[Rfam]
The record is a 375-nucleotide RNA from Staphylococcus saprophyticus, which matches "Bacterial RNase P class B" in Rfam. About the family: Ribonuclease P (RNase P) is a ubiquitous endoribonuclease, found in archaea, bacteria and eukarya as well as chloroplasts and mitochondria. The family's RNA type in Rfam is ribozyme. The source organism's lineage runs through Bacteria, Bacillati, Caryophanales, Staphylococcaceae and Staphylococcus saprophyticus.
RNA sequence: UGUUUCGGGUAAUCGCUAUAGCGAUAUAGAGGAAAGUCCAUGCUCACACAAUCUGAGAUGAUUGUAGUGUUCGUGCUUGAUGAAACAAUAAGUCAAGGCAUUAAGUUGACGGCAACGAAAUAACCUAAGUCCUUAGAUAAGGUUAGAUUAGUUUGAAAGUGCCACAGUGACGGAGCUUUUGCAGAAAUGCAAAAGGUGGAACGCGGUAAACCCCUCGAGUGAGCAAUCCAAAUUAGGUAGGAGCACUUAUUUAACGGAAUUCAACGUAUAUAUAAGACAUACUUUUAAAAGUAUGUAGACAGAUGGUUACCACCUGCGUACGAGUGUUUCUAGUACACGUUAGCAGUACAAUGGUACAAAACAUGGCUUACAGAA
Numbered sequence: 001u002g003u004u005u006c007g008g009g010u011a012a013u014c015g016c017u018a019u020a021g022c023g024a025u026a027u028a029g030a031g032g033a034a035a036g037u038c039c040a041u042g043c044u045c046a047c048a049c050a051a052u053c054u055g056a057g058a059u060g061a062u063u064g065u066a067g068u069g070u071u072c073g074u075g076c077u078u079g080a081u082g083a084a085a086c087a088a089u090a091a092g093u094c095a096a097g098g099c100a101u102u103a104a105g106u107u108g109a110c111g112g113c114a115a116c117g118a119a120a121u122a123a124c125c126u127a128a129g130u131c132c133u134u135a136g137a138u139a140a141g142g143u144u145a146g147a148u149u150a151g152u153u154u155g156a157a158a159g160u161g162c163c164a165c166a167g168u169g170a171c172g173g174a175g176c177u178u179u180u181g182c183a184g185a186a187a188u189g190c191a192a193a194a195g196g197u198g199g200a201a202c203g204c205g206g207u208a209a210a211c212c213c214c215u216c217g218a219g220u221g222a223g224c225a226a227u228c229c230a231a232a233u234u235a236g237g238u239a240g241g242a243g244c245a246c247u248u249a250u251u252u253a254a255c256g257g258a259a260u261u262c263a264a265c266g267u268a269u270a271u272a273u274a275a276g277a278c279a280u281a282c283u284u285u286u287a288a289a290a291g292u293a294u295g296u297a298g299a300c301a302g303a304u305g306g307u308u309a310c311c312a313c314c315u316g317c318g319u320a321c322g323a324g325u326g327u328u329u330c331u332a333g334u335a336c337a338c339g340u341u342a343g344c345a346g347u348a349c350a351a352u353g354g355u356a357c358a359a360a361a362c363a364u365g366g367c368u369u370a371c372a373g374a375a
Stems, first nucleotide, its partner, number of pairs: 004375003007371001008311007016029005034369003038366005043223005048065006071218003075214001076097006098110001099108002111213002114153003122144004129138003159211002161207003176195008227242003246276005252270001277296008313354002318349004
Dot-bracket structure: ...(((((((((((.(((((....)))))....[[[.[[[[[(((((((((((......)))))).....(((.(((((((..........))))))(((......)).)((.(((.....((((...(((....)))..))))......))).....(((((............((((((((....)))))))).........)))..))))).))))))))...(((..........)))...(((((.(.................).)))))((((((((....))))))))........))))))).((...((((........................))))...)).......]]]]]]]].).)))